This 85-nucleotide sequence from Dipodomys ordii belongs to the Rfam family "mir-3473 microRNA precursor family". The match comes from Rfam's covariance-model search (73 bits). Rfam 15.1 lists 1,094 matches to the family in 20 species.

RNA sequence: ACCACUGAGCCACCUUCCCAGCCCUAUGGCAUAGUUUUUCUACGUGUAAGAAUUACAUGUAGGGCUGGGAAGGUGGCUCAGUGGU
Number, nucleotide and partner (000 for none) at each position: 001a000002c084003c083004a082005c081006u080007g079008a078009g077010c076011c075012a074013c073014c072015u071016u070017c069018c068019c067020a066021g065022c064023c063024c062025u061026a060027u059028g000029g000030c000031a000032u000033a000034g000035u000036u000037u000038u000039u000040c000041u000042a000043c000044g000045u000046g000047u000048a000049a000050g000051a000052a000053u000054u000055a000056c000057a000058u000059g027060u026061a025062g024063g023064g022065c021066u020067g019068g018069g017070a016071a015072g014073g013074u012075g011076g010077c009078u008079c007080a006081g005082u004083g003084g002085u000